[Rfam]
RNA sequence: AGGGAACUCAAACUCCUAGCCUUGCUACCUAAGUUGUUUUACACGCAAUAAGGUAUCUUGGCCGUGGCGAUGUCAGCCACCAGGGUGCAGAGUGGAAACGCUCGCAUCUCCCGUAUUUGGAAGGUGUUAUGGUACCGCAACU
Number, nucleotide and partner (000 for none) at each position: 001a000002g000003g136004g135005a000006a133007c000008u000009c000010a000011a128012a127013c126014u000015c124016c123017u000018a000019g062020c061021c060022u000023u000024g057025c000026u055027a054028c053029c052030u000031a000032a000033g049034u048035u047036g046037u000038u000039u000040u000041a000042c000043a000044c000045g000046c036047a035048a034049u033050a000051a000052g029053g028054u027055a026056u000057c024058u000059u000060g021061g020062c019063c000064g080065u079066g078067g077068c076069g000070a000071u000072g000073u000074c000075a000076g068077c067078c066079a065080c064081c000082a000083g109084g108085g107086u106087g105088c104089a000090g103091a102092g101093u100094g099095g000096a000097a000098a000099c094100g093101c092102u091103c090104g088105c087106a086107u085108c084109u083110c120111c119112c000113g000114u000115a000116u000117u000118u000119g111120g110121a000122a000123g016124g015125u000126g013127u012128u011129a000130u000131g000132g000133u006134a000135c004136c003137g000138c000139a000140a000141c000142u000
Rfam assigns this 142-nucleotide sequence from Serratia sp. DD3 to the family "Molybdenum/Tungsten riboswitch aptamer (Moco RNA motif)". Pairs were carried over by alignment from the consensus structure, which is taken from published work. A search with the family's covariance model found it, with a score of 96 bits.